RNA sequence: UGUCUUAUUACACCGCAGCAACCGUGUGCUGAGCGCCUCUCAGUAUUGAUUAAACACAGUUGGUGUCGCCUAUGUUAACGUCAAAUAUAAAGUAUUGGUCAUGGACUGGCGCGUUUAUAUUAUCGCUACUGUUCUGGGCCGAGUUAAUCUGGAUUGCCGUCUAAUCUCGUCAAAGCCCGAUAAUGCGUUAUUUAUCGGGCUUUUUCAUCUUC
Numbered sequence: 001u002g003u004c005u006u007a008u009u010a011c012a013c014c015g016c017a018g019c020a021a022c023c024g025u026g027u028g029c030u031g032a033g034c035g036c037c038u039c040u041c042a043g044u045a046u047u048g049a050u051u052a053a054a055c056a057c058a059g060u061u062g063g064u065g066u067c068g069c070c071u072a073u074g075u076u077a078a079c080g081u082c083a084a085a086u087a088u089a090a091a092g093u094a095u096u097g098g099u100c101a102u103g104g105a106c107u108g109g110c111g112c113g114u115u116u117a118u119a120u121u122a123u124c125g126c127u128a129c130u131g132u133u134c135u136g137g138g139c140c141g142a143g144u145u146a147a148u149c150u151g152g153a154u155u156g157c158c159g160u161c162u163a164a165u166c167u168c169g170u171c172a173a174a175g176c177c178c179g180a181u182a183a184u185g186c187g188u189u190a191u192u193u194a195u196c197g198g199g200c201u202u203u204u205u206c207a208u209c210u211u212c
Base pairs, nucleotide, nucleotide: 010066011065012064013063014062029043030042031041032040033039098139099138100137103129105127107125108124109123111121140156141155142154144152145151173202174201175200176199177198178197179196180195181194182193
Dot-bracket structure: .........(((((..............(((((.....)))))..................)))))...............................(((..(.(.(((.(.........).))).).).......)))(((.((.....)).)))................((((((((((..........))))))))))..........